RNA sequence: GGAUGUGAGGGCGAUCUGGUUGGGACAUCUGUCACCCCAUUGAUCGCCAGGGUUGAUUCAGCUGAUCUGGCUGGCUAGGCAGGUGUCCCUUUCCUCCCUCACCGCUCCAUGUGCAUCCCUCCCGAAGCUGCACGCUCAGUCGAAGAAGACGACCAUCCCCGAUAGAGGAGGACCGGUCUUCGGUCAAGGGUAUACGAGUAGCUGCGCUCCCCUGCUAGAACCUCCAAACAAGCUCUCAAGAACUUGGCAUGUUCUCUGUGAUGACCUAGAGAGGUAGGAUGGCAGAGCAGGGAGGUU
Numbered sequence: 001g002g003a004u005g006u007g008a009g010g011g012c013g014a015u016c017u018g019g020u021u022g023g024g025a026c027a028u029c030u031g032u033c034a035c036c037c038c039a040u041u042g043a044u045c046g047c048c049a050g051g052g053u054u055g056a057u058u059c060a061g062c063u064g065a066u067c068u069g070g071c072u073g074g075c076u077a078g079g080c081a082g083g084u085g086u087c088c089c090u091u092u093c094c095u096c097c098c099u100c101a102c103c104g105c106u107c108c109a110u111g112u113g114c115a116u117c118c119c120u121c122c123c124g125a126a127g128c129u130g131c132a133c134g135c136u137c138a139g140u141c142g143a144a145g146a147a148g149a150c151g152a153c154c155a156u157c158c159c160c161g162a163u164a165g166a167g168g169a170g171g172a173c174c175g176g177u178c179u180u181c182g183g184u185c186a187a188g189g190g191u192a193u194a195c196g197a198g199u200a201g202c203u204g205c206g207c208u209c210c211c212c213u214g215c216u217a218g219a220a221c222c223u224c225c226a227a228a229c230a231a232g233c234u235c236u237c238a239a240g241a242a243c244u245u246g247g248c249a250u251g252u253u254c255u256c257u258g259u260g261a262u263g264a265c266c267u268a269g270a271g272a273g274g275u276a277g278g279a280u281g282g283c284a285g286a287g288c289a290g291g292g293a294g295g296u297u
Stems, first nucleotide, its partner, number of pairs: 001108003005102007013093002018090002024087010035074002037070003042067004046062002116171002118168004122139001124137002127135002140162003148157002201288003207282002211278005222271003231267002
RNA: 7SK RNA
Organism: Bos grunniens